[Rfam]
RNA sequence: UGGUGAGGUAGAGGCGCGAUAUUUAUUAGUUCUUGGCGGAGUUAGAGAGAGCGGUGAAACCGGGAAGAAGGAAAUGUUGCCGAAGUUUGUAAUAGAUCUCGAUAUUACAUGCUGGGCUUGCAAUGAAUAAUUGUAAGACUGUCUCAAUAAGCUACCCUGGUUUAUUGAGUUGAGCUAUCUCAUUU
Numbered sequence: 001u002g003g004u005g006a007g008g009u010a011g012a013g014g015c016g017c018g019a020u021a022u023u024u025a026u027u028a029g030u031u032c033u034u035g036g037c038g039g040a041g042u043u044a045g046a047g048a049g050a051g052c053g054g055u056g057a058a059a060c061c062g063g064g065a066a067g068a069a070g071g072a073a074a075u076g077u078u079g080c081c082g083a084a085g086u087u088u089g090u091a092a093u094a095g096a097u098c099u100c101g102a103u104a105u106u107a108c109a110u111g112c113u114g115g116g117c118u119u120g121c122a123a124u125g126a127a128u129a130a131u132u133g134u135a136a137g138a139c140u141g142u143c144u145c146a147a148u149a150a151g152c153u154a155c156c157c158u159g160g161u162u163u164a165u166u167g168a169g170u171u172g173a174g175c176u177a178u179c180u181c182a183u184u185u
Stems, first nucleotide, its partner, number of pairs: 006180006016080009031065006084113003088109007114140002117137008143169009